[Rfam]
RNA: L2-Alphaproteobacteria ribosomal protein leader
RNA sequence: GCGCGUGUUGCAGCGCGUCUAACAUAGGCAGGGCAACCUGCCGUUUGCUAAACGGAAGACAGAAA
Numbered sequence: 001g002c003g004c005g006u007g008u009u010g011c012a013g014c015g016c017g018u019c020u021a022a023c024a025u026a027g028g029c030a031g032g033g034c035a036a037c038c039u040g041c042c043g044u045u046u047g048c049u050a051a052a053c054g055g056a057a058g059a060c061a062g063a064a065a
Base pairs, nucleotide, nucleotide: 001018002017003016004015005014006013027042028041029040030039031038032037